[Rfam]
RNA sequence: CAGCUGUCUCUUGUGCUUGAUCUAACCAUGUGGCCCCGCCAGUUGUGACUUCACAUGGUUCCGUCAAGCGCCAGGGACCGCGC
Numbered sequence: 001c002a003g004c005u006g007u008c009u010c011u012u013g014u015g016c017u018u019g020a021u022c023u024a025a026c027c028a029u030g031u032g033g034c035c036c037c038g039c040c041a042g043u044u045g046u047g048a049c050u051u052c053a054c055a056u057g058g059u060u061c062c063g064u065c066a067a068g069c070g071c072c073a074g075g076g077a078c079c080g081c082g083c
Stems, first nucleotide, its partner, number of pairs: 003081002006078004013071007024060008

Record summary: The record is an 83-nucleotide sequence from Oryzias latipes, which matches "mir-218 microRNA precursor family" in Rfam. Rfam's curators put it in the seed alignment. The family has 74 seed sequences and 1,392 matches in Rfam 15.1. Its family is annotated with miRNA-mediated post-transcriptional gene silencing and RISC complex in the Gene Ontology. The organism belongs to Oryzias, within Eukaryota. The base pairs follow the family's consensus structure, which was predicted with RNAalifold.